[Rfam]
RNA: DUF805b RNA
RNA sequence: AAGGUGGUUGUCCGAAAAACCUUGAAUAGAGUAGGGC
Number, nucleotide and partner (000 for none) at each position: 001a000002a022003g021004g020005u019006g000007g000008u000009u000010g000011u036012c035013c034014g000015a000016a000017a000018a000019a005020c004021c003022u002023u000024g000025a000026a000027u000028a000029g000030a000031g000032u000033a000034g013035g012036g011037c000